[Rfam]
RNA sequence: AAAACGAAGGGGUUGUAGGGGAAGAAUUCCCCUGCCUCUUUAAAGGAGGGUGUUCAGAUUGCGAAAGCAAUCGUCGAAGGGAAC
Numbered sequence: 001a002a003a004a005c006g007a008a009g010g011g012g013u014u015g016u017a018g019g020g021g022a023a024g025a026a027u028u029c030c031c032c033u034g035c036c037u038c039u040u041u042a043a044a045g046g047a048g049g050g051u052g053u054u055c056a057g058a059u060u061g062c063g064a065a066a067g068c069a070a071u072c073g074u075c076g077a078a079g080g081g082a083a084c
Stems, first nucleotide, its partner, number of pairs: 015035008057072005
RNA: Clostridiales-2 RNA
Organism: Anaeromicrobium sediminis